[Rfam]
The family of this 78-nucleotide RNA sequence from Hermetia illucens is "drz-agam-1 ribozyme".
RNA sequence: UACUAUCAAACCCUAUCUCCACCUCCACGUGGUGAUCGCUGGGAGUUCUUCUUCAUGAAAAACUGCUCACGAAGAAGG
Numbered sequence: 001u002a003c004u005a006u007c008a009a010a011c012c013c014u015a016u017c018u019c020c021a022c023c024u025c026c027a028c029g030u031g032g033u034g035a036u037c038g039c040u041g042g043g044a045g046u047u048c049u050u051c052u053u054c055a056u057g058a059a060a061a062a063c064u065g066c067u068c069a070c071g072a073a074g075a076a077g078g
Base pairs, nucleotide, nucleotide: 012078013077014076016074018072019071021033022032023031044064045063046062047061049059050058051057
Taxonomically the source falls in Hermetia (Eukaryota, Bilateria, Allotriocarida, Eumetabola). The family has 7 seed sequences and 10,507 matches in Rfam 15.1.